[Rfam]
RNA sequence: GGAUGUGAAGGCAAUCUAGAUGCGACAUCUGUCACCCUAUCAAUUGCCAGGGUUGAUUCAGCUGAUUUAGCUGACUAGGUGGGUGUCCCCUUACUCCCUCGCUACUCCAUGUCCAUCCCCCCUGAAGCUGUACAAUAAUUGGUAGAAGAGGAUGAUCUUCCUGAUAGAGGAAAACCGUCCUUCAGUCAAGAACAUAUAAGUAGCUGUGCUCCCCUGCUAGAACCUUCAAACAAGCUCUCAAGGCCCAUUUGUAGGGGAACAUAGGGUAGUUAAGCUUCCAAGCCUCCAGUCACAUCCAAAUAAGGCACUAUAUGUGGCAGUCUACCUUUUAU
Numbered sequence: 001g002g003a004u005g006u007g008a009a010g011g012c013a014a015u016c017u018a019g020a021u022g023c024g025a026c027a028u029c030u031g032u033c034a035c036c037c038u039a040u041c042a043a044u045u046g047c048c049a050g051g052g053u054u055g056a057u058u059c060a061g062c063u064g065a066u067u068u069a070g071c072u073g074a075c076u077a078g079g080u081g082g083g084u085g086u087c088c089c090c091u092u093a094c095u096c097c098c099u100c101g102c103u104a105c106u107c108c109a110u111g112u113c114c115a116u117c118c119c120c121c122c123u124g125a126a127g128c129u130g131u132a133c134a135a136u137a138a139u140u141g142g143u144a145g146a147a148g149a150g151g152a153u154g155a156u157c158u159u160c161c162u163g164a165u166a167g168a169g170g171a172a173a174a175c176c177g178u179c180c181u182u183c184a185g186u187c188a189a190g191a192a193c194a195u196a197u198a199a200g201u202a203g204c205u206g207u208g209c210u211c212c213c214c215u216g217c218u219a220g221a222a223c224c225u226u227c228a229a230a231c232a233a234g235c236u237c238u239c240a241a242g243g244c245c246c247a248u249u250u251g252u253a254g255g256g257g258a259a260c261a262u263a264g265g266g267u268a269g270u271u272a273a274g275c276u277u278c279c280a281a282g283c284c285u286c287c288a289g290u291c292a293c294a295u296c297c298a299a300a301u302a303a304g305g306c307a308c309u310a311u312a313u314g315u316g317g318c319a320g321u322c323u324a325c326c327u328u329u330u331a332u
Stems, first nucleotide, its partner, number of pairs: 001108003005102004010097002014092001019089001024087010036073001037070003042067004046062002116173001118170002121167001122142004143164001145162001150160003203275003209269002212266005224257004230252005299332001302328004307321003311317001
Shown here is a 332-nucleotide RNA sequence from Chrysochloris asiatica, a member of the family "7SK RNA". Rfam's curators write: 7SK was discovered as an abundant small nuclear RNA in the mid-70s but a possible function has only recently been suggested. Its Rfam clan is "7SK clan".